[Rfam]
RNA sequence: CCAGCUGAGUUGGCGAUGUUCACUCGCGCGAGUGAACAUCGCCAACUCAGCUGGAUUCGGGGGGCAUUGCCUGCCCUACGCUCAGCGCAACACAACCGCAGACAUGCGACGGCCCUCGCCGGGACGGCAAUCCCAGUGCGAGGGCCUGACCACCGAGGAAGAGAGAGCUUCCCG
Numbered sequence: 001c002c003a004g005c006u007g008a009g010u011u012g013g014c015g016a017u018g019u020u021c022a023c024u025c026g027c028g029c030g031a032g033u034g035a036a037c038a039u040c041g042c043c044a045a046c047u048c049a050g051c052u053g054g055a056u057u058c059g060g061g062g063g064g065c066a067u068u069g070c071c072u073g074c075c076c077u078a079c080g081c082u083c084a085g086c087g088c089a090a091c092a093c094a095a096c097c098g099c100a101g102a103c104a105u106g107c108g109a110c111g112g113c114c115c116u117c118g119c120c121g122g123g124a125c126g127g128c129a130a131u132c133c134c135a136g137u138g139c140g141a142g143g144g145c146c147u148g149a150c151c152a153c154c155g156a157g158g159a160a161g162a163g164a165g166a167g168c169u170u171c172c173c174g
Stems, first nucleotide, its partner, number of pairs: 020035006050086005111146005117140003121134004157172005